[Rfam]
RNA sequence: CAACUAAAUCCACCCUUGCGGGUGGGUGAAACAUUGCUUCGCAAUAUGAAAUACGCUUUCAGCGUAUGAAACCGCUG
Numbered sequence: 001c002a003a004c005u006a007a008a009u010c011c012a013c014c015c016u017u018g019c020g021g022g023u024g025g026g027u028g029a030a031a032c033a034u035u036g037c038u039u040c041g042c043a044a045u046a047u048g049a050a051a052u053a054c055g056c057u058u059u060c061a062g063c064g065u066a067u068g069a070a071a072c073c074g075c076u077g
Base pairs, nucleotide, nucleotide: 008027009026010025011024012023013022014021015020031047033045034044035043036042051067052066053065054064055063056062057061
Description: Gut-1 RNA: a 77-nucleotide RNA sequence. Pairs were carried over by alignment from the consensus structure, which is taken from published work. It is one of the family's seed sequences.